[Rfam]
RNA sequence: CUGAAUAUAUCGCUUAAUCCUUUUAUAAAGGAACGGGGGAACCAAUUUCUUGGGGUGUAUCUUCUUAUACGAAGUAGGGUUACUCUUGGACCUGAACCCGUCAGCUAACCUCGUAAGCGUGCCAAGAGGAGGU
Number, nucleotide and partner (000 for none) at each position: 001c000002u000003g000004a000005a000006u000007a000008u000009a000010u000011c119012g118013c117014u116015u000016a000017a000018u032019c031020c030021u029022u028023u000024u000025a000026u000027a000028a022029a021030g020031g019032a018033a114034c113035g112036g111037g110038g109039g000040a000041a000042c000043c052044a051045a000046u000047u000048u000049c000050u000051u044052g043053g099054g098055g097056u000057g000058u000059a000060u000061c074062u073063u072064c071065u000066u000067a000068u000069a000070c000071g064072a063073a062074g061075u000076a000077g093078g092079g091080u090081u000082a000083c000084u000085c000086u000087u000088g000089g000090a080091c079092c078093u077094g000095a000096a000097c055098c054099c053100g000101u000102c000103a000104g000105c000106u000107a000108a000109c038110c037111u036112c035113g034114u033115a000116a014117g013118c012119g011120u000121g000122c000123c000124a000125a000126g000127a000128g000129g000130a000131g000132g000133u000
Overview: c-di-AMP riboswitch aptamer (ydaO/yuaA leader): a 133-nucleotide sequence from Tepidanaerobacter syntrophicus. Taxonomically the source falls in Tepidanaerobacter (Bacteria, Bacillati, Bacillota, Clostridia). A search with the family's covariance model found it, with a score of 109 bits.